[Rfam]
RNA sequence: GUUAUUUGAGGUGGUAAAUUUCGUUGCGACCACACGCCGAUGGCUUGACAAAGGGAAACCUUGAGAGAUGCAGGAGAUGCGACGCCUGCCAAAUAAC
Numbered sequence: 001g002u003u004a005u006u007u008g009a010g011g012u013g014g015u016a017a018a019u020u021u022c023g024u025u026g027c028g029a030c031c032a033c034a035c036g037c038c039g040a041u042g043g044c045u046u047g048a049c050a051a052a053g054g055g056a057a058a059c060c061u062u063g064a065g066a067g068a069u070g071c072a073g074g075a076g077a078u079g080c081g082a083c084g085c086c087u088g089c090c091a092a093a094u095a096a097c
Stems, first nucleotide, its partner, number of pairs: 001097008011033005023083005035065001037054002070089005
Background: This 97-nucleotide sequence belongs to the Rfam family "skipping-rope RNA". Rfam's curators put it in the seed alignment. Pairs were carried over by alignment from the consensus structure, which is taken from published work.